About this RNA
U1 spliceosomal RNA: a 162-nucleotide RNA sequence from Canis lupus.
RNA sequence: AUACCUACCUGGCAGGGGAGAUACCAUGAUCAUGAAGGUGGUAUUCCUAGGGCAAGGCUUAUCUGUUGCACUAUGGAUGUGCUGACUCCUGCAAUUUCCCCAAACGUGAAAACUGCAACUGCAUAAUUUGUGGUAGUGGGGACCCAUGUUCAUGCUUUCCCC
Dot-bracket structure: ...........(((((((((..(((((..........))))).)))))((((...(((.(((((..........))))).)))...)))).(.((((..(.......).))).))...))))...............(((((..(((....)))..))))).
Record summary:
Rfam's curators write: U1 is a small nuclear RNA (snRNA) component of the spliceosome (involved in pre-mRNA splicing). Its 5' end forms complementary base pairs with the 5' splice junction, thus defining the 5' donor site of an intron. There are significant differences in sequence and secondary structure between metazoan and yeast U1 snRNAs, the latter being much longer (568 nucleotides as compared to 164 nucleotides in human). Nevertheless, secondary structure predictions suggest that all U1 snRNAs share a 'common core' consisting of helices I, II, the proximal region of III, and IV. This family does not contain the larger yeast sequences. It scores 115 bits against the family's covariance model. Rfam classes the family as a spliceosomal small nuclear RNA. NCBI's taxonomy places the organism under Eukaryota, Sarcopterygii, Tetrapoda, Laurasiatheria, Canis lupus.